[Rfam]
RNA: Small nucleolar RNA snR8
Organism: Sungouiella intermedia
RNA sequence: CAAACCUCAACGAGAAACGCUGCUCAUUCACUUUACCGUCCAAUUCCAUGGGCGAGUGGAGGGGAAAGAGCAGCCAGAAGAACUGCGACAUCGUCUCAUACUAGGUCGUCUUUACAUUGGACGGUUUGGUCUGCGAUUUCGACACAUAA
Numbered sequence: 001c002a003a004a005c006c007u008c009a010a011c012g013a014g015a016a017a018c019g020c021u022g023c024u025c026a027u028u029c030a031c032u033u034u035a036c037c038g039u040c041c042a043a044u045u046c047c048a049u050g051g052g053c054g055a056g057u058g059g060a061g062g063g064g065a066a067a068g069a070g071c072a073g074c075c076a077g078a079a080g081a082a083c084u085g086c087g088a089c090a091u092c093g094u095c096u097c098a099u100a101c102u103a104g105g106u107c108g109u110c111u112u113u114a115c116a117u118u119g120g121a122c123g124g125u126u127u128g129g130u131c132u133g134c135g136a137u138u139u140c141g142a143c144a145c146a147u148a149a
Base pairs, nucleotide, nucleotide: 019074020073022071023070031061032060034058035057037054038053039052040051041050086141087140088139091136092135093134101129102128103127105125106124107123108122109121110120111119